RNA sequence: GCGGAACUGGCGGAAUUGGUAGACGCGCUAGAUUCAGGUUCUAGUGGGGGAUAACUCUGUCCGGGUUCAAGUCCCGGGUUCCGCA
Numbered sequence: 001g002c003g004g005a006a007c008u009g010g011c012g013g014a015a016u017u018g019g020u021a022g023a024c025g026c027g028c029u030a031g032a033u034u035c036a037g038g039u040u041c042u043a044g045u046g047g048g049g050g051a052u053a054a055c056u057c058u059g060u061c062c063g064g065g066u067u068c069a070a071g072u073c074c075c076g077g078g079u080u081c082c083g084c085a
Base pairs, nucleotide, nucleotide: 001084002083003082004081005080006079007078010026011025012024028044029043030042031041032040061077062076063075064074065073

The family of this 85-nucleotide RNA sequence from Prochlorothrix hollandica is "tRNA".